Shown here is a 178-nucleotide RNA sequence from Trichodesmium erythraeum, a member of the family "Antisense RNA which regulates isiA expression".

RNA sequence: AGUAGCCGAAAAUGGUUGUGGGGUUCAAAGUUGGAUCGUAAAUUACCCGCACAUUCUGAAUGACUGGAUCGUAUAAUCCACCAUAUGCCAUUGCUUUUGCUACAAGCAACAAAGCACCAAAUCCCAACAAUACGAGAUGGAUACCCAGGAUAGUUGUCAUUUUGCCUGGAUCAUCCCA
Dot-bracket structure: .......................................................................................................................................(((((...((..(................)..)).)))))...
A reference for the family is Duhring et al. (2006), "An internal antisense RNA regulates expression of the photosynthesis gene isiA", Proc Natl Acad Sci U S A.